[Rfam]
RNA sequence: AGCUCUGCAACAAGAAAGGGCACUUUGCCACUGUUUGUAGAAGCUCUUCUAAAUCUACAAAUUCUGUGGUAGUAGGUACUGAAGAUC
Numbered sequence: 001a002g003c004u005c006u007g008c009a010a011c012a013a014g015a016a017a018g019g020g021c022a023c024u025u026u027g028c029c030a031c032u033g034u035u036u037g038u039a040g041a042a043g044c045u046c047u048u049c050u051a052a053a054u055c056u057a058c059a060a061a062u063u064c065u066g067u068g069g070u071a072g073u074a075g076g077u078a079c080u081g082a083a084g085a086u087c
Stems, first nucleotide, its partner, number of pairs: 002087001004085003008081002012077001021076001025072007033062009
RNA: mir-2814 microRNA precursor family
Organism: Bombyx mori